[Rfam]
The record is a 105-nucleotide RNA from Clostridium acidisoli, which matches "SAM riboswitch aptamer (S box leader)" in Rfam.
RNA sequence: GCCUUAUCAAGAGAAACUGAGGGACUGGCCUAAUGACGUUUCAGCAACCAUACUUAAAAAGUGAAGGUGCUAAUUCCAGCAGAACUGAGUUCUGGAAGAUAGGGG
Dot-bracket structure: .(((((((....(((((...(((.[[[[)))......)))))((((.((.(((.......)))..))))))...(]]]]((((((...))))))..)))))))).
Numbered sequence: 001g002c003c004u005u006a007u008c009a010a011g012a013g014a015a016a017c018u019g020a021g022g023g024a025c026u027g028g029c030c031u032a033a034u035g036a037c038g039u040u041u042c043a044g045c046a047a048c049c050a051u052a053c054u055u056a057a058a059a060a061g062u063g064a065a066g067g068u069g070c071u072a073a074u075u076c077c078a079g080c081a082g083a084a085c086u087g088a089g090u091u092c093u094g095g096a097a098g099a100u101a102g103g104g105g
Stems, first nucleotide, its partner, number of pairs: 002104007013042005021031003025079004043071004048067002051063003075097001080094006